RNA sequence: GUAGGUUAUGGGGACAUGUACCCCAUGACGGUAGGGGGCAAGAUUGUGGGCUCACUGUGCGCCAUUGCUGGGGUCCUCACCAUUGCAUUACCGGUACCGGUCAUUGUCUCCAAU
Numbered sequence: 001g002u003a004g005g006u007u008a009u010g011g012g013g014a015c016a017u018g019u020a021c022c023c024c025a026u027g028a029c030g031g032u033a034g035g036g037g038g039c040a041a042g043a044u045u046g047u048g049g050g051c052u053c054a055c056u057g058u059g060c061g062c063c064a065u066u067g068c069u070g071g072g073g074u075c076c077u078c079a080c081c082a083u084u085g086c087a088u089u090a091c092c093g094g095u096a097c098c099g100g101u102c103a104u105u106g107u108c109u110c111c112a113a114u
Stems, first nucleotide, its partner, number of pairs: 001114002004111002008107004013102003018097004037077002040074001049063003
RNA: Potassium channel RNA editing signal